[Rfam]
RNA sequence: CCAAAGGCUCUUUUAAGAGCCACUACCUGCGCAAUAAAAAGAGCGG
Numbered sequence: 001c002c003a004a005a006g007g008c009u010c011u012u013u014u015a016a017g018a019g020c021c022a023c024u025a026c027c028u029g030c031g032c033a034a035u036a037a038a039a040a041g042a043g044c045g046g
Stems, first nucleotide, its partner, number of pairs: 006021006
About this RNA
This 46-nucleotide RNA sequence from Caloenas nicobarica belongs to the Rfam family "Histone 3' UTR stem-loop". The family's RNA type in Rfam is cis-regulatory element. NCBI's taxonomy places the organism under Eukaryota, Opisthokonta, Eumetazoa, Columbiformes, Caloenas.